[Rfam]
Nucleotides: 147
Base pairs, nucleotide, nucleotide: 012131013130014129018038019037020036021035022034023033024032025031040126041125042124043123044122049058050057059112060111061110067085068084069083070082088106089105090104091103
Number, partner (000 for none) and nucleotide at each position: 001000u002000g003000c004000c005000g006000c007000g008000c009000a010000a011000c012131g013130c014129c015000g016000a017000a018038c019037c020036c021035g022034g023033g024032g025031c026000c027000c028000g029000g030000a031025g032024c033023c034022c035021c036020g037019g038018g039000a040126c041125g042124g043123g044122g045000g046000a047000c048000c049058c050057a051000a052000g053000u054000u055000a056000u057050u058049g059112g060111g061110g062000c063000g064000a065000g066000u067085c068084c069083c070082g071000c072000g073000g074000u075000c076000g077000a078000u079000c080000c081000g082070c083069g084068g085067g086000a087000g088106g089105c090104g091103c092000c093000g094000g095000c096000u097000c098000u099000u100000u101000c102000c103091g104090c105089g106088c107000u108000a109000g110061c111060c112059c113000g114000a115000c116000a117000g118000c119000u120000a121000a122044c123043c124042c125041c126040g127000c128000a129014g130013g131012c132000c133000g134000a135000c136000g137000a138000a139000a140000g141000a142000g143000a144000g145000u146000g147000c
The family of this 147-nucleotide RNA from Conexibacter arvalis is "c-di-AMP riboswitch aptamer (ydaO/yuaA leader)". A search with the family's covariance model found it, with a score of 60 bits. Rfam links the family to the GO terms cyclic-di-AMP binding and regulation of gene expression. Lineage of the source: Bacteria > Bacillati > Actinomycetota > Thermoleophilia > Conexibacter.